RNA sequence: AGCGAGUGUUUACCAGUGAUUAACCUUUCCGGUCUAUGAAUGAUGACGUUCAGGUUUCUGGACUUGAGUGGUUCCUGUCCCACUCCGUUUGACGACUCCCUGUCAUCGACCCUUGGCCGCCCUGUUCGGGCGGCCUUUUUUCG
Numbered sequence: 001a002g003c004g005a006g007u008g009u010u011u012a013c014c015a016g017u018g019a020u021u022a023a024c025c026u027u028u029c030c031g032g033u034c035u036a037u038g039a040a041u042g043a044u045g046a047c048g049u050u051c052a053g054g055u056u057u058c059u060g061g062a063c064u065u066g067a068g069u070g071g072u073u074c075c076u077g078u079c080c081c082a083c084u085c086c087g088u089u090u091g092a093c094g095a096c097u098c099c100c101u102g103u104c105a106u107c108g109a110c111c112c113u114u115g116g117c118c119g120c121c122c123u124g125u126u127c128g129g130g131c132g133g134c135c136u137u138u139u140u141u142c143g
Stems, first nucleotide, its partner, number of pairs: 001044001003042002006014001021036002025032002048063004066085006091104004115135008
The family of this 143-nucleotide sequence from Hansschlegelia quercus is "Alphaproteobacterial sRNA BjrC1505".
On this family, see Madhugiri et al., RNA Biol 2012: "Small RNAs of the Bradyrhizobium/Rhodopseudomonas lineage and their analysis".
Taxonomically the source falls in Hansschlegelia (Bacteria, Pseudomonadota, Alphaproteobacteria, Hyphomicrobiales).